[Rfam]
RNA sequence: AGGGCCUGGGGACGGCUGCUGGUGGCUGUGUCUCAGCCUAGUGCCUGCUGGCCUCACCCGUGGCCCAGAUCAACCCCCAGAGGACCCCCUGCUGGGAACCUCCUAUGCAGUAACAGGUGUGAGCAUCCACGCAGCAUUCUGAUGGUCAUGUAUGAUACUGCACACAACG
Number, nucleotide and partner (000 for none) at each position: 001a000002g000003g065004g064005c063006c062007u000008g059009g058010g057011g000012a000013c000014g053015g052016c051017u050018g048019c047020u000021g045022g044023u043024g038025g037026c036027u035028g034029u000030g000031u000032c000033u000034c028035a027036g026037c025038c024039u000040a000041g000042u000043g023044c022045c021046u000047g019048c018049u000050g017051g016052c015053c014054u000055c000056a000057c010058c009059c008060g000061u000062g006063g005064c004065c003066c000067a000068g000069a000070u000071c000072a000073a000074c000075c000076c096077c095078c094079a093080g092081a000082g090083g089084a000085c000086c000087c000088c000089c083090u082091g000092c080093u079094g078095g077096g076097a000098a000099c000100c000101u000102c000103c000104u164105a000106u162107g161108c160109a159110g158111u157112a156113a000114c154115a153116g000117g000118u000119g000120u148121g147122a146123g000124c144125a143126u142127c141128c000129a000130c000131g138132c000133a000134g000135c000136a000137u000138u131139c000140u000141g127142a126143u125144g124145g000146u122147c121148a120149u000150g000151u000152a000153u115154g114155a000156u112157a111158c110159u109160g108161c107162a106163c000164a104165c000166a000167a000168c000169g000
Rfam assigns this 169-nucleotide sequence from Coturnix japonica to the family "Small Cajal body specific RNA 16". Its family is annotated with RNA processing and nucleolus in the Gene Ontology. The family has 37 seed sequences and 790 matches in Rfam 15.1. The family's consensus secondary structure was predicted with RNAfold. From the family's description: scaRNAs are a specific class of small nuclear RNAs which localise to the Cajal bodies and guide the modification of RNA polymerase II transcribed spliceosomal RNAs U1, U2, U4, U5 and U12. ACA47 belongs to the H/ACA box class of guide RNAs as it has the predicted hairpin-hinge-hairpin-tail structure, the conserved H/ACA-box motifs and is found associated with GAR1. ACA47 is predicted to guide the pseudouridylation of residue U5 of the U1 spliceosomal snRNA.